[Rfam]
RNA sequence: UUUGGGAAAUGAUGCGAAUAUAUUAAUAUAAUUAUCAGAGGCGACAGCUCCGCUGAUUUGUUUUUUUGCUCGUCAGUCUGAUCCCAAC
Numbered sequence: 001u002u003u004g005g006g007a008a009a010u011g012a013u014g015c016g017a018a019u020a021u022a023u024u025a026a027u028a029u030a031a032u033u034a035u036c037a038g039a040g041g042c043g044a045c046a047g048c049u050c051c052g053c054u055g056a057u058u059u060g061u062u063u064u065u066u067u068g069c070u071c072g073u074c075a076g077u078c079u080g081a082u083c084c085c086a087a088c
Base pairs, nucleotide, nucleotide: 002087003086004085005084006083007082
The family of this 88-nucleotide sequence from Actinidia chinensis is "Small nucleolar RNA Z122".
The family's consensus secondary structure was predicted with PFOLD.
The organism belongs to Actinidia chinensis, within Eukaryota.
The match comes from Rfam's covariance-model search (57 bits).